[Rfam]
The family of this 61-nucleotide RNA from Closterium sp. NIES-67 is "Pseudomonas sRNA P36".
For this family Rfam cites "Identification of 17 Pseudomonas aeruginosa sRNAs and prediction of sRNA-encoding genes in 10 diverse pathogens using the bioinformatic tool sRNAPredict2" (Livny et al., Nucleic Acids Res, 2006).
The family's consensus secondary structure was predicted with RNAalifold.
RNA sequence: AAAACUGUUACCGCGGACAACCCGCGUAACAAAAGCCGGGGCUUACGGUAACGAAGCCCCG
Numbered sequence: 001a002a003a004a005c006u007g008u009u010a011c012c013g014c015g016g017a018c019a020a021c022c023c024g025c026g027u028a029a030c031a032a033a034a035g036c037c038g039g040g041g042c043u044u045a046c047g048g049u050a051a052c053g054a055a056g057c058c059c060c061g
Stems, first nucleotide, its partner, number of pairs: 006031006013025004037061007046053002